[Rfam]
RNA: c-di-GMP-I riboswitch aptamer
RNA sequence: ACAGUAAAAGGGCUAACCUGACCGAAAGGCAGGGGCGCAAAGUCACAGGUCUAAUGUAUGAAAAAUACAAUGACAGCUGGACUGCCUGG
Numbered sequence: 001a002c003a004g005u006a007a008a009a010g011g012g013c014u015a016a017c018c019u020g021a022c023c024g025a026a027a028g029g030c031a032g033g034g035g036c037g038c039a040a041a042g043u044c045a046c047a048g049g050u051c052u053a054a055u056g057u058a059u060g061a062a063a064a065a066u067a068c069a070a071u072g073a074c075a076g077c078u079g080g081a082c083u084g085c086c087u088g089g
Stems, first nucleotide, its partner, number of pairs: 012038002017033004022029002041083004046079003049074003056068004